[Rfam]
RNA sequence: UUUUAUAAAGGGCAAACUUAUUGAAAAAUAGGUCGCAAAGCCAUGGGUCUAAAGAUAUUUUUAUCAAUGACUGCCAGGUUGCAUCA
Numbered sequence: 001u002u003u004u005a006u007a008a009a010g011g012g013c014a015a016a017c018u019u020a021u022u023g024a025a026a027a028a029u030a031g032g033u034c035g036c037a038a039a040g041c042c043a044u045g046g047g048u049c050u051a052a053a054g055a056u057a058u059u060u061u062u063a064u065c066a067a068u069g070a071c072u073g074c075c076a077g078g079u080u081g082c083a084u085c086a
Stems, first nucleotide, its partner, number of pairs: 012036002017031001019030004039080004044076003047071003054065004
c-di-GMP-I riboswitch aptamer: an 86-nucleotide sequence from Sporomusa acidovorans. A search with the family's covariance model found it, with a score of 75 bits.